[Rfam]
RNA: SAM riboswitch aptamer (S box leader)
RNA sequence: CUCUUAUCAAGAGUGGUGGAGGGACUGGCCCUAUGAAACCCAGCAACCAAAAGCAUUGCGCUUUAGGUGCUACAUCCUGCAAACGAAUGUUUGAGAGAUAAGAG
Number, nucleotide and partner (000 for none) at each position: 001c104002u103003c102004u101005u100006a099007u098008c097009a000010a000011g000012a000013g041014u000015g040016g039017u038018g000019g000020a000021g031022g030023g029024a000025c079026u000027g077028g076029c023030c022031c021032u000033a000034u000035g000036a000037a000038a017039c016040c015041c013042a071043g070044c069045a068046a000047c067048c066049a000050a064051a063052a062053g061054c000055a000056u000057u000058g000059c000060g000061c053062u052063u051064u050065a000066g048067g047068u045069g044070c043071u042072a000073c000074a000075u096076c028077c027078u000079g025080c093081a092082a091083a090084c089085g000086a000087a000088u000089g084090u083091u082092u081093g080094a000095g000096a075097g008098a007099u006100a005101a004102g003103a002104g001